This 48-nucleotide sequence from Parafrankia sp. EUN1f belongs to the Rfam family "L31-Actinobacteria ribosomal protein leader". Rfam classes the family as a cis-regulatory leader. On this family, see Eckert and Weinberg, BMC Microbiol 2020: "Discovery of 20 novel ribosomal leader candidates in bacteria and archaea". NCBI's taxonomy places the organism under Bacteria, Actinomycetota, Actinomycetes, Frankiales, Parafrankia. The base pairs follow the family's consensus structure, which is taken from published work.

[Rfam]
RNA sequence: GCGGCUCCGGUUCACGCCCUCCGCGCCCGCGGCGGCGACCCGGCGGCC
Numbered sequence: 001g002c003g004g005c006u007c008c009g010g011u012u013c014a015c016g017c018c019c020u021c022c023g024c025g026c027c028c029g030c031g032g033c034g035g036c037g038a039c040c041c042g043g044c045g046g047c048c
Stems, first nucleotide, its partner, number of pairs: 003048003007043004015037004021032003